[Rfam]
RNA sequence: UCUGGGUGAGGUAGUAGGUUGUAUAGUAGGGAAUGGAAAUUCGCGAAAUACGAAGUCCACUGUACAACUUGCUAACUUUCCCAGU
Numbered sequence: 001u002c003u004g005g006g007u008g009a010g011g012u013a014g015u016a017g018g019u020u021g022u023a024u025a026g027u028a029g030g031g032a033a034u035g036g037a038a039a040u041u042c043g044c045g046a047a048a049u050a051c052g053a054a055g056u057c058c059a060c061u062g063u064a065c066a067a068c069u070u071g072c073u074a075a076c077u078u079u080c081c082c083a084g085u
Base pairs, nucleotide, nucleotide: 002084003083004082005081006080008078009077010076012074013073014072015071016070017069018068019067020066021065022064023063024062025061026060027059032041049054